[Rfam]
RNA: Soft rot Enterobacteriaceae Rev 39 5'UTR
RNA sequence: UAUUGAUUGUGAUGUCUGUGGUACCUCUUUAGGUAUUCCUUCGAACAAGAUGCAAGAAAAGACAAAAUGACAGCCCUUCUACGAGUGAUUAGCCUAGUCGUGAUUAGCGUGGUGGUGAUUAUUAUCCCACCGUGCGGGGCUGCACUUGGACGAGGAAAGGCUUAAUAAUCAAGCCUUAACGAACUAAGACCCCCGCACCGCAAGGUCCGGGGGUUUUUUUAUGGCCUUAAAAUAUCAGUGAGCGGCAGAAGCUUAAUAUCAGCAUAAAAUUCUGUUUCUCCGGAAAUGU
Numbered sequence: 001u002a003u004u005g006a007u008u009g010u011g012a013u014g015u016c017u018g019u020g021g022u023a024c025c026u027c028u029u030u031a032g033g034u035a036u037u038c039c040u041u042c043g044a045a046c047a048a049g050a051u052g053c054a055a056g057a058a059a060a061g062a063c064a065a066a067a068u069g070a071c072a073g074c075c076c077u078u079c080u081a082c083g084a085g086u087g088a089u090u091a092g093c094c095u096a097g098u099c100g101u102g103a104u105u106a107g108c109g110u111g112g113u114g115g116u117g118a119u120u121a122u123u124a125u126c127c128c129a130c131c132g133u134g135c136g137g138g139g140c141u142g143c144a145c146u147u148g149g150a151c152g153a154g155g156a157a158a159g160g161c162u163u164a165a166u167a168a169u170c171a172a173g174c175c176u177u178a179a180c181g182a183a184c185u186a187a188g189a190c191c192c193c194c195g196c197a198c199c200g201c202a203a204g205g206u207c208c209g210g211g212g213g214u215u216u217u218u219u220u221a222u223g224g225c226c227u228u229a230a231a232a233u234a235u236c237a238g239u240g241a242g243c244g245g246c247a248g249a250a251g252c253u254u255a256a257u258a259u260c261a262g263c264a265u266a267a268a269a270u271u272c273u274g275u276u277u278c279u280c281c282g283g284a285a286a287u288g289u
Base pairs, nucleotide, nucleotide: 001020002019003018006013007012029065030064032063034061036058037057038056040054041050042049076242077241081239083236084235089230090229091228092226094224095223096222099109100108101107111131112130113129114128115127117126118125119124132151133150135148136147137146138145154180159176160175162173163172186217187216188215189214190213191212192211193210194209195208197206198205199204244276245275246274247273248272249271250270253264